[Rfam]
RNA sequence: GUGGCUUUAACAUCUUAACUAGAAUCAUGCUUUGAAUGAUUAACAUGUGAAGCAUUGUUGUGUAUGUUUUAGCCUACAGUGAACAUAGUUCCCCUCGCUAUCCUGUUCAUCAAUUUAAAUGAUGUUACUUAGGACGUCGGGGAACAAUAUGU
Number, nucleotide and partner (000 for none) at each position: 001g077002u076003g074004g073005c072006u000007u000008u000009a068010a067011c066012a065013u064014c000015u000016u062017a061018a000019c000020u000021a000022g000023a000024a000025u000026c057027a055028u054029g053030c052031u051032u050033u049034g000035a000036a048037u047038g046039a000040u000041u000042a000043a000044c000045a000046u038047g037048u036049g033050a032051a031052g030053c029054a028055u027056u000057g026058u000059u000060g000061u017062g016063u000064a013065u012066g011067u010068u009069u000070u000071a000072g005073c004074c003075u000076a002077c001078a000079g000080u000081g000082a000083a000084c000085a000086u000087a000088g145089u144090u143091c142092c141093c140094c139095u000096c136097g135098c000099u000100a000101u134102c133103c132104u131105g130106u000107u000108c000109a000110u122111c121112a120113a000114u000115u000116u000117a000118a000119a000120u112121g111122a110123u000124g000125u000126u000127a000128c000129u000130u105131a104132g103133g102134a101135c097136g096137u000138c000139g094140g093141g092142g091143a090144a089145c088146a000147a000148u000149a000150u000151g000152u000

The family of this 152-nucleotide sequence from Brassica rapa is "Small nucleolar RNA snoR136". Taxonomically the source falls in Brassica (Eukaryota, Streptophytina, Embryophyta, Spermatophyta). By type it is an H/ACA-box small nucleolar RNA. The sequence is in the family's curated seed alignment. Pairs were carried over by alignment from the consensus structure, which was predicted with mfold.